[Rfam]
RNA: SAM riboswitch aptamer (S box leader)
RNA sequence: CUCUUAUCCAGAGUUGGCUGAGGGACUGGCCCUAUGAAGCCCGGCAACCGGAAUCGCGCCUCCACAAAGAGUGCGAUUUGUGGUGCUAAUUCCUGCAGGAAUAUUUCCUGACAGAUAAGAG
Dot-bracket structure: ((((((((....(..(((...(((.[.[[)))......))))((((.(((((........................)))..))))))...(]].]((((((...))))))..)))))))))
Numbered sequence: 001c002u003c004u005u006a007u008c009c010a011g012a013g014u015u016g017g018c019u020g021a022g023g024g025a026c027u028g029g030c031c032c033u034a035u036g037a038a039g040c041c042c043g044g045c046a047a048c049c050g051g052a053a054u055c056g057c058g059c060c061u062c063c064a065c066a067a068a069g070a071g072u073g074c075g076a077u078u079u080g081u082g083g084u085g086c087u088a089a090u091u092c093c094u095g096c097a098g099g100a101a102u103a104u105u106u107c108c109u110g111a112c113a114g115a116u117a118a119g120a121g
Stems, first nucleotide, its partner, number of pairs: 001121008013042001016041003022032003026095001028093002043087004048083002050079003091113001096110006